[Rfam]
Nucleotides: 179
Base pairs, nucleotide, nucleotide: 007173008172009171010170011169017085018084019083020082021081022080023079024078025077033070034069035067036066037065038064039063040062089118090117091116092115094113095112097110098109099108100107119145120144122142123141124140125139126138127137128136129135147164148163149162150161151160152159153158
Number, partner (000 for none) and nucleotide at each position: 001000a002000a003000g004000g005000c006000g007173g008172a009171u010170a011169g012000a013000g014000g015000u016000c017085g018084c019083g020082g021081a022080u023079u024078u025077u026000a027000u028000g029000a030000g031000u032000a033070a034069a035067g036066c037065a038064a039063a040062g041000g042000a043000g044000a045000c046000u047000g048000c049000c050000g051000a052000a053000g054000u055000c056000g057000u058000u059000u060000g061000a062040u063039u064038u065037u066036g067035u068000g069034u070033u071000g072000a073000a074000a075000g076000g077025a078024a079023a080022a081021u082020u083019u084018g085017c086000c087000g088000a089118a090117g091116g092115g093000g094113a095112a096000c097110u098109g099108c100107u101000u102000c103000c104000g105000g106000c107100a108099g109098c110097g111000u112095u113094u114000g115092c116091c117090c118089u119145g120144a121000g122142c123141c124140u125139g126138u127137a128136u129135u130000g131000a132000a133000g134000a135129a136128g137127u138126a139125c140124a141123g142122g143000a144120u145119u146000g147164u148163c149162a150161u151160c152159a153158a154000g155000u156000u157000a158153u159152u160151g161150a162149u163148g164147g165000a166000g167000a168000g169011c170010u171009a172008u173007c174000g175000a176000c177000g178000g179000a
Shown here is a 179-nucleotide RNA from Massiliimalia timonensis, a member of the family "Lysine riboswitch aptamer". The base pairs follow the family's consensus structure, which is taken from published work.